[Rfam]
RNA sequence: UCGUUAAGUGAUGACGUGGUAGACGGAGUGCCGUGUCAUUAUGCCUUGUCACAGACACCUCAUUGCUACAUCAUCACCGCUAAUGAUAUGGCACUGACGUGUUAGUGAUUGGUGUGAUGACGUGACACUCUAUCUGCCACAUCAUCACCUAACGGAA
Numbered sequence: 001u002c003g004u005u006a007a008g009u010g011a012u013g014a015c016g017u018g019g020u021a022g023a024c025g026g027a028g029u030g031c032c033g034u035g036u037c038a039u040u041a042u043g044c045c046u047u048g049u050c051a052c053a054g055a056c057a058c059c060u061c062a063u064u065g066c067u068a069c070a071u072c073a074u075c076a077c078c079g080c081u082a083a084u085g086a087u088a089u090g091g092c093a094c095u096g097a098c099g100u101g102u103u104a105g106u107g108a109u110u111g112g113u114g115u116g117a118u119g120a121c122g123u124g125a126c127a128c129u130c131u132a133u134c135u136g137c138c139a140c141a142u143c144a145u146c147a148c149c150u151a152a153c154g155g156a157a
Stems, first nucleotide, its partner, number of pairs: 001155006008148007016140008025131006032124012045112002048109005054103005070087005